[Rfam]
RNA sequence: GGUUGAGACACUGGAGGCAGCGGUUAAUCGAUCUGUUCCUGAAACUCAAAACUCAAAGGAUAAAUUAGCGUAACAGGAAUCGAUCGAUAAACCUCUGCAUCCAGCGCUUUACCC
Numbered sequence: 001g002g003u004u005g006a007g008a009c010a011c012u013g014g015a016g017g018c019a020g021c022g023g024u025u026a027a028u029c030g031a032u033c034u035g036u037u038c039c040u041g042a043a044a045c046u047c048a049a050a051a052c053u054c055a056a057a058g059g060a061u062a063a064a065u066u067a068g069c070g071u072a073a074c075a076g077g078a079a080u081c082g083a084u085c086g087a088u089a090a091a092c093c094u095c096u097g098c099a100u101c102c103a104g105c106g107c108u109u110u111a112c113c114c
Stems, first nucleotide, its partner, number of pairs: 013102003018097003022093004027088007036079003
RNA: MIR162_1 microRNA precursor family